The record is a 74-nucleotide sequence from Sinimarinibacterium sp. NLF-5-8, which matches "tRNA" in Rfam. The family's RNA type in Rfam is transfer RNA. It scores 75 bits against the family's covariance model. The organism belongs to Sinimarinibacterium, within Bacteria. Transfer RNA (tRNA) molecules are approximately 80 nucleotides in length. Rfam links the family to the GO term triplet codon-amino acid adaptor activity.

[Rfam]
RNA sequence: GGGUCUGUAGCUCAGCUGGUUAGAGCACACGCUUGAUAAGCGUGGGGUCGCUGGUUCAAAUCCAGCCAGACCCA
Numbered sequence: 001g002g003g004u005c006u007g008u009a010g011c012u013c014a015g016c017u018g019g020u021u022a023g024a025g026c027a028c029a030c031g032c033u034u035g036a037u038a039a040g041c042g043u044g045g046g047g048u049c050g051c052u053g054g055u056u057c058a059a060a061u062c063c064a065g066c067c068a069g070a071c072c073c074a
Base pairs, nucleotide, nucleotide: 001073002072003071004070005069006068007067010026011025012024013023028044029043030042031041032040050066051065052064053063054062